[Rfam]
RNA sequence: CAGCGUUCUCAGGGCGGGGCGGAAUUCCCCACCGGCGGUAUCUGCAGGCAACUGCAGGAGCCCGCGAGCGCCUGACACAGGCCUUUGCAGGUGUCAGGGUCAGCAGAUCUGGUGCGAUGCCAGGGCCGACGGUCACAGUCCGGAUGAAAGAGACCGCGU
Numbered sequence: 001c002a003g004c005g006u007u008c009u010c011a012g013g014g015c016g017g018g019g020c021g022g023a024a025u026u027c028c029c030c031a032c033c034g035g036c037g038g039u040a041u042c043u044g045c046a047g048g049c050a051a052c053u054g055c056a057g058g059a060g061c062c063c064g065c066g067a068g069c070g071c072c073u074g075a076c077a078c079a080g081g082c083c084u085u086u087g088c089a090g091g092u093g094u095c096a097g098g099g100u101c102a103g104c105a106g107a108u109c110u111g112g113u114g115c116g117a118u119g120c121c122a123g124g125g126c127c128g129a130c131g132g133u134c135a136c137a138g139u140c141c142g143g144a145u146g147a148a149a150g151a152g153a154c155c156g157c158g159u
Base pairs, nucleotide, nucleotide: 003157004156005155007153008152009151010150017029018028019027031139032138033128034127035065036064037063038062060126061125068104069103108124109123110122111121112120130142131141132140

Rfam assigns this 159-nucleotide sequence from Piscinibacter aquaticus to the family "FMN riboswitch aptamer (RFN element)".
Gene Ontology term of the family: FMN binding.
Pairs were carried over by alignment from the consensus structure, which is taken from published work.